[Rfam]
The record is a 75-nucleotide RNA sequence from Asticcacaulis benevestitus, which matches "Makes More Granules Regulator RNA (mmgR)" in Rfam. Rfam classes the family as a small RNA. Its family is annotated with protein binding, response to nitrogen compound and DNA-templated transcription, termination in the Gene Ontology. Lineage of the source: Bacteria > Pseudomonadati > Pseudomonadota > Caulobacterales > Asticcacaulis benevestitus. SuhB later renamed mmgR (makes more granules regulator) was a putative non-coding RNA found multiple times in the Agrobacterium tumefaciens genome and related alpha-proteobacteria. Other non-coding RNAs uncovered in the same analysis include: speF, ybhL, metA, and serC.Several studies inSinorhizobium meliloti showed that suhB element is indeed a non-coding RNA:firstly it was detected on Northern blot and called Sm8RNA, secondly in an RNAseq study referred to as SmelC689.The mutant phenotype's (strain lacking the small RNA) cytoplasm contains higher content of polyhydroxybutyrate (PBH)storage granules than wild type strain. The sRNA is required to limit the PBH intracellular accumulation when the nitrogen-fixing Sinorhizobium meliloti is under condition of surplus carbon in relation to nitrogen. It has been renamed to mmgR. Further study confirmed that mmgR fine-tunes the regulation of PBH storage.Northern blot confirmed the expression of the sRNA in other rhizobia species. It scores 65 bits against the family's covariance model. A reference for the family is Corbino et al. (2005), "Evidence for a second class of S-adenosylmethionine riboswitches and other regulatory RNA motifs in alpha-proteobacteria", Genome Biol.
RNA sequence: CGCUGAUGCCCUUCCUGGGCGUUUCCUCCCUGUAGACUUUGCCGCGCCGUUGAGCGCGGCUUUUUUUUGCCUUAU
Numbered sequence: 001c002g003c004u005g006a007u008g009c010c011c012u013u014c015c016u017g018g019g020c021g022u023u024u025c026c027u028c029c030c031u032g033u034a035g036a037c038u039u040u041g042c043c044g045c046g047c048c049g050u051u052g053a054g055c056g057c058g059g060c061u062u063u064u065u066u067u068u069g070c071c072u073u074a075u
Stems, first nucleotide, its partner, number of pairs: 008020004041060007
Dot-bracket structure: .......((((.....))))....................(((((((......)))))))...............